The family of this 257-nucleotide sequence from Eremothecium cymbalariae is "Small nucleolar RNA snR191".
The family is grouped with related families in Rfam's "SNORA74 clan".
It is annotated as an H/ACA-box small nucleolar RNA.
The match comes from Rfam's covariance-model search (198 bits).

[Rfam]
RNA sequence: UACCAAAACUCUUUGUCAGGGCCUCUCUCCUUCCCUUUGGAAAUUACCCAGAGAAUGGUCUGUUAAAGUUUUGGAAGAUAGAUAACAUUCGCCCGUUUAUUGCUCUCGUUCUGAGAGAAUUCUGAUGAACAUCAGAUGGGUAACUUUCGUUUUGAAAGUAUGCCAUCGCCUUCUUAGAAUGGGGAGGAUCUUAUGAGUUGAGCAUGGAUAUUUAAAGACCUACAGUACCGUUGCUCGUAGUAAAGAACCUCACAAUU
Numbered sequence: 001u002a003c004c005a006a007a008a009c010u011c012u013u014u015g016u017c018a019g020g021g022c023c024u025c026u027c028u029c030c031u032u033c034c035c036u037u038u039g040g041a042a043a044u045u046a047c048c049c050a051g052a053g054a055a056u057g058g059u060c061u062g063u064u065a066a067a068g069u070u071u072u073g074g075a076a077g078a079u080a081g082a083u084a085a086c087a088u089u090c091g092c093c094c095g096u097u098u099a100u101u102g103c104u105c106u107c108g109u110u111c112u113g114a115g116a117g118a119a120u121u122c123u124g125a126u127g128a129a130c131a132u133c134a135g136a137u138g139g140g141u142a143a144c145u146u147u148c149g150u151u152u153u154g155a156a157a158g159u160a161u162g163c164c165a166u167c168g169c170c171u172u173c174u175u176a177g178a179a180u181g182g183g184g185a186g187g188a189u190c191u192u193a194u195g196a197g198u199u200g201a202g203c204a205u206g207g208a209u210a211u212u213u214a215a216a217g218a219c220c221u222a223c224a225g226u227a228c229c230g231u232u233g234c235u236c237g238u239a240g241u242a243a244a245g246a247a248c249c250u251c252a253c254a255a256u257u
Base pairs, nucleotide, nucleotide: 003074004073005072006071007070019061020060021059022058023057026054027053028052031042032041033040034039086181087180088179089178090177095130096129097128098127099126100125101119103117104116105115106114107113135167136166137165138164139163143159144158145157146156147155148154149153184251185250186249187248189246190245191244192243199237200236201235202234203233206229207228